[Rfam]
The record is a 66-nucleotide RNA sequence from Pipistrellus kuhlii, which matches "Selenocysteine insertion sequence 1" in Rfam. On this family, see Walczak et al., RNA 1996: "A novel RNA structural motif in the selenocysteine insertion element of eukaryotic selenoprotein mRNAs". The base pairs follow the family's consensus structure, which is taken from published work. The source organism's lineage runs through Eukaryota, Vertebrata, Dipnotetrapodomorpha, Chiroptera and Pipistrellus.

RNA sequence: CUCUGUUAAUGAUGCCUCUUCCUCUAAACCCCUUUAAGGACUGGGAGAGGCUGACAAGCCCCAGAG
Dot-bracket structure: (((((........(((((((((........((.....))...)))))))))..........)))))